The record is a 94-nucleotide sequence from Aminithiophilus ramosus, which matches "Selenocysteine transfer RNA" in Rfam.
RNA sequence: GGAGGCGAUUCUCGGCUGGUGCCGGGUGCAGACUUCAAAUCUGUCGGGGGUCGGUACGCGCCGGCUCCGGUGGGUUCGAUUCCCACACGCCUCC
Numbered sequence: 001g002g003a004g005g006c007g008a009u010u011c012u013c014g015g016c017u018g019g020u021g022c023c024g025g026g027u028g029c030a031g032a033c034u035u036c037a038a039a040u041c042u043g044u045c046g047g048g049g050g051u052c053g054g055u056a057c058g059c060g061c062c063g064g065c066u067c068c069g070g071u072g073g074g075u076u077c078g079a080u081u082c083c084c085a086c087a088c089g090c091c092u093c094c
Base pairs, nucleotide, nucleotide: 001094002093003092004091005090006089007088011026012025013024014023015022016021028044029043030042031041032040047068048067049066050065051064052063053062071085072084073083074082
The match comes from Rfam's covariance-model search (74 bits). The literature on the family includes a 1997 paper in Nucleic Acids Res by Lowe and Eddy, "tRNAscan-SE: a program for improved detection of transfer RNA genes in genomic sequence". The organism belongs to Aminithiophilus, within Bacteria.